[Rfam]
RNA sequence: UAAGCAAGUUAAGCGCCAGAGCUUGCGUGAUGAACGAUCUGUUGUAGAGCUGGGAAGAAAAGCUUGAAGCGGGUGUUCAUACGGGAAGCUGACGAGGUGAAGGUGUUCGAAACAUUCGGCGGGGACCUUCCGGUAUUUGCAAGCCAACCGAAAGCUGUUACGUAAAACGGCCGGGCGACCGGUCAUACAAUCGUGCAGCAGGCUGCUUAUU
Numbered sequence: 001u002a003a004g005c006a007a008g009u010u011a012a013g014c015g016c017c018a019g020a021g022c023u024u025g026c027g028u029g030a031u032g033a034a035c036g037a038u039c040u041g042u043u044g045u046a047g048a049g050c051u052g053g054g055a056a057g058a059a060a061a062g063c064u065u066g067a068a069g070c071g072g073g074u075g076u077u078c079a080u081a082c083g084g085g086a087a088g089c090u091g092a093c094g095a096g097g098u099g100a101a102g103g104u105g106u107u108c109g110a111a112a113c114a115u116u117c118g119g120c121g122g123g124g125a126c127c128u129u130c131c132g133g134u135a136u137u138u139g140c141a142a143g144c145c146a147a148c149c150g151a152a153a154g155c156u157g158u159u160a161c162g163u164a165a166a167a168c169g170g171c172c173g174g175g176c177g178a179c180c181g182g183u184c185a186u187a188c189a190a191u192c193g194u195g196c197a198g199c200a201g202g203c204u205g206c207u208u209a210u211u
Stems, first nucleotide, its partner, number of pairs: 020090005026084001099130005107119004131150004155201005161195001169184006
Dot-bracket structure: ...................(((((.(.........................................................).)))))........(((((...((((.....))))......)))))((((............))))....(((((.(.......((((((....))))))..........).)))))..........